Shown here is a 79-nucleotide RNA from Bifidobacterium magnum, a member of the family "Transposase-2 RNA". Rfam 15.1 lists 214 matches to the family in 110 species. The family's consensus secondary structure is taken from published work. It scores 47 bits against the family's covariance model.
RNA sequence: GAAACGCGAACCAAGCAGAACGCUCCCAUCAGCGUUCAGUGAGUCUUGGAGCCUCCCCGCCGCAAGGCGAGGGAGUACA
Numbered sequence: 001g002a003a004a005c006g007c008g009a010a011c012c013a014a015g016c017a018g019a020a021c022g023c024u025c026c027c028a029u030c031a032g033c034g035u036u037c038a039g040u041g042a043g044u045c046u047u048g049g050a051g052c053c054u055c056c057c058c059g060c061c062g063c064a065a066g067g068c069g070a071g072g073g074a075g076u077a078c079a
Stems, first nucleotide, its partner, number of pairs: 011049005018037001020035004053075005059068003